[Rfam]
RNA: isrI Hfq binding RNA
Organism: Salmonella enterica
RNA sequence: UAUUAUUGGUGUCUGGCAUCUGACGCAGGGCGAUGACAUUUGUCACAACGGAGAGGCUGAGAUUCUGGCGGGACCGUUAGAACCUCCAAUUUAAUACAU
Number, nucleotide and partner (000 for none) at each position: 001u000002a000003u000004u000005a000006u000007u000008g040009g039010u038011g037012u036013c035014u000015g000016g000017c032018a000019u030020c029021u028022g000023a000024c000025g000026c000027a000028g021029g020030g019031c000032g017033a000034u000035g013036a012037c011038a010039u009040u008041u000042g000043u051044c050045a000046c000047a000048a000049c000050g044051g043052a000053g000054a000055g000056g000057c000058u000059g000060a000061g000062a000063u000064u000065c000066u000067g000068g000069c000070g000071g000072g000073a000074c000075c000076g000077u000078u000079a000080g000081a000082a000083c000084c000085u000086c000087c000088a000089a000090u000091u000092u000093a000094a000095u000096a000097c000098a000099u000